RNA sequence: AGGUAAUGUCUACUGGACCUUUAUCACUGUAGGCACUCGACCAUGCUGUGGGCUGGUAUAGCCUUAGACGUUUAUUGUCAAGGGUGUGGUGUGAGGCUGGGUUAGAUGCCCA
Numbered sequence: 001a002g003g004u005a006a007u008g009u010c011u012a013c014u015g016g017a018c019c020u021u022u023a024u025c026a027c028u029g030u031a032g033g034c035a036c037u038c039g040a041c042c043a044u045g046c047u048g049u050g051g052g053c054u055g056g057u058a059u060a061g062c063c064u065u066a067g068a069c070g071u072u073u074a075u076u077g078u079c080a081a082g083g084g085u086g087u088g089g090u091g092u093g094a095g096g097c098u099g100g101g102u103u104a105g106a107u108g109c110c111c112a
Base pairs, nucleotide, nucleotide: 001020002019003018004017007035008034009033010032011031012030013029036095037094038093039092040090041089042088043087044086045085046084047083050064051063052062053061054060055059067079068078069077070076098112099111100110101109102108
The record is a 112-nucleotide RNA from Paenibacillus hemerocallicola, which matches "epsC RNA" in Rfam. Rfam 15.1 lists 450 matches to the family in 334 species. The source organism's lineage runs through Bacteria, Bacillati, Bacilli, Paenibacillaceae and Paenibacillus. The match comes from Rfam's covariance-model search (103 bits). The base pairs follow the family's consensus structure, which is taken from published work. Rfam classes the family as a cis-regulatory element.